[Rfam]
RNA sequence: CCGAAAAGCUGGUUAGCCGCUGUCACACGCACAGUGGAAUGUGAAAAGCGCAAUGUGCGUUAGUCAGUGGCUUACCUGCUUUUGGAAAUAACAAGG
Dot-bracket structure: ....(((((.((..((((((((.((..((((((.((..............)).)))))).).).))))))))..)).)))))..............